[Rfam]
RNA sequence: UUUGUGGAGAGUUUGAUCCUGGCUCAGGACGAACGCUGGCGGCGUGCUUAACACAUGCAAGUCGAACGGAAAGGCCUUGCUUGCAAGGUACUCGAGUGGCGAACGGGUGAGUAACACGUGGGUGAUCUGCCCUGCACUUCGGGAUAAGCCUGGGAAACUGGGUCUAAUACCGGAUAGGACCAUCGUUUAGUGUCGGUGGUGGAAAGUUUUUUCGGUGUAGGAUGAGCCCGCGGCCUAUCAGCUUGUUGGUGGGGUAAUGGCCUACCAAGGCGUCGACGGGUAGCCGGCCUGAGAGGGUGGACGGCCACAUUGGGACUGAGAUACGGCCCAGACUCCUACGGGAGGCAGCAGUGGGGAAUAUUGCACAAUGGGCGGAAGCCUGAUGCAGCGACGCCGCGUGGGGGAUGAAGGCCUUCGGGUUGUAAACUCCUUUCGCUAGGGACGAAGCUUUUGUGACGGUACCUAGAUAAGAAGCACCGGCUAACUACGUGCCAGCAGCCGCGGUAAUACGUAGGGUGCGAGCGUUGUCCGGAAUUACUG
Numbered sequence: 001u002u003u004g005u006g007g008a009g010a011g012u013u014u015g016a017u018c019c020u021g022g023c024u025c026a027g028g029a030c031g032a033a034c035g036c037u038g039g040c041g042g043c044g045u046g047c048u049u050a051a052c053a054c055a056u057g058c059a060a061g062u063c064g065a066a067c068g069g070a071a072a073g074g075c076c077u078u079g080c081u082u083g084c085a086a087g088g089u090a091c092u093c094g095a096g097u098g099g100c101g102a103a104c105g106g107g108u109g110a111g112u113a114a115c116a117c118g119u120g121g122g123u124g125a126u127c128u129g130c131c132c133u134g135c136a137c138u139u140c141g142g143g144a145u146a147a148g149c150c151u152g153g154g155a156a157a158c159u160g161g162g163u164c165u166a167a168u169a170c171c172g173g174a175u176a177g178g179a180c181c182a183u184c185g186u187u188u189a190g191u192g193u194c195g196g197u198g199g200u201g202g203a204a205a206g207u208u209u210u211u212u213c214g215g216u217g218u219a220g221g222a223u224g225a226g227c228c229c230g231c232g233g234c235c236u237a238u239c240a241g242c243u244u245g246u247u248g249g250u251g252g253g254g255u256a257a258u259g260g261c262c263u264a265c266c267a268a269g270g271c272g273u274c275g276a277c278g279g280g281u282a283g284c285c286g287g288c289c290u291g292a293g294a295g296g297g298u299g300g301a302c303g304g305c306c307a308c309a310u311u312g313g314g315a316c317u318g319a320g321a322u323a324c325g326g327c328c329c330a331g332a333c334u335c336c337u338a339c340g341g342g343a344g345g346c347a348g349c350a351g352u353g354g355g356g357a358a359u360a361u362u363g364c365a366c367a368a369u370g371g372g373c374g375g376a377a378g379c380c381u382g383a384u385g386c387a388g389c390g391a392c393g394c395c396g397c398g399u400g401g402g403g404g405a406u407g408a409a410g411g412c413c414u415u416c417g418g419g420u421u422g423u424a425a426a427c428u429c430c431u432u433u434c435g436c437u438a439g440g441g442a443c444g445a446a447g448c449u450u451u452u453g454u455g456a457c458g459g460u461a462c463c464u465a466g467a468u469a470a471g472a473a474g475c476a477c478c479g480g481c482u483a484a485c486u487a488c489g490u491g492c493c494a495g496c497a498g499c500c501g502c503g504g505u506a507a508u509a510c511g512u513a514g515g516g517u518g519c520g521a522g523c524g525u526u527g528u529c530c531g532g533a534a535u536u537a538c539u540g
Stems, first nucleotide, its partner, number of pairs: 009025005027530004032526006039397006045390002047355001052353003056350003061100003066097002069093002074089006107308003117232007126225002131221007139173004148163006179200007187192001206213001234280003241271003246268008283305004287298004310331005333344004361387001363386003369382005400430004410421004434471001436466005444457001474519005485514005495502002
RNA: Bacterial small subunit ribosomal RNA, nucleotides 1 to 540